A member of the RNA family "tRNA" from Aspergillus nidulans, 72 nucleotides long. Transfer RNA (tRNA) molecules are approximately 80 nucleotides in length. Taxonomically the source falls in Aspergillus subgen. Nidulantes (Eukaryota, Dikarya, leotiomyceta, Aspergillus). Rfam's curators put it in the seed alignment. Gene Ontology term of the family: triplet codon-amino acid adaptor activity. By type it is a transfer RNA.
RNA sequence: GGGGCUAUAGUUUAACUGGUAAAACGGCGAUUUUGCAUAUCGUUAUUUCAGGAUCGAGUCCUGAUAACUCCA
Numbered sequence: 001g002g003g004g005c006u007a008u009a010g011u012u013u014a015a016c017u018g019g020u021a022a023a024a025c026g027g028c029g030a031u032u033u034u035g036c037a038u039a040u041c042g043u044u045a046u047u048u049c050a051g052g053a054u055c056g057a058g059u060c061c062u063g064a065u066a067a068c069u070c071c072a
Stems, first nucleotide, its partner, number of pairs: 001071004006066002010025004027043005048064005